[Rfam]
RNA: Acido-Lenti-1 RNA
Organism: Lentisphaera araneosa
RNA sequence: CCUAGCCCUUACGGGCCAGGCUAAAUUAUGCCGUGCUUUCAGCACU
Number, nucleotide and partner (000 for none) at each position: 001c020002c019003u018004a000005g016006c015007c014008c013009u000010u000011a000012c000013g008014g007015g006016c005017c000018a003019g002020g001021c000022u000023a000024a000025a000026u000027u000028a000029u000030g000031c000032c000033g045034u044035g043036c042037u041038u000039u000040c000041a037042g036043c035044a034045c033046u000